A member of the RNA family "Purine riboswitch aptamer", 102 nucleotides long. Clan: Purine riboswitches.
RNA sequence: AUCAAUAUAGUCGAAAUACGUCGUAUAAUGUCGAGGAUAUGGCUCGAAAGUUUCUACCAAGCUACCGUAAAUGGCUUGACUACGAGGUAUUAAUAGCAGAGG
Dot-bracket structure: .................((.(((((...(.(((((.......))))).)........(((((((.......)))))))..))))).))..............